RNA sequence: CAAAAAGCAGGGCUCUGUUUUGUACGUAACAGAGUUCACGUAAAUGUCAGGAAAAUCGAAUUGGUCAUCGUGUUUGGGUGAACCUACGUUUCUUAUAAUAUCUGAUGGGUUCAGUUCAUGAUGGUACAUUG
Numbered sequence: 001c002a003a004a005a006a007g008c009a010g011g012g013c014u015c016u017g018u019u020u021u022g023u024a025c026g027u028a029a030c031a032g033a034g035u036u037c038a039c040g041u042a043a044a045u046g047u048c049a050g051g052a053a054a055a056u057c058g059a060a061u062u063g064g065u066c067a068u069c070g071u072g073u074u075u076g077g078g079u080g081a082a083c084c085u086a087c088g089u090u091u092c093u094u095a096u097a098a099u100a101u102c103u104g105a106u107g108g109g110u111u112c113a114g115u116u117c118a119u120g121a122u123g124g125u126a127c128a129u130u131g
Base pairs, nucleotide, nucleotide: 005047007045011036012035014033015032016031017030064125065124066123067122068121069120070119071118072117079113080112081111082110083109084108085107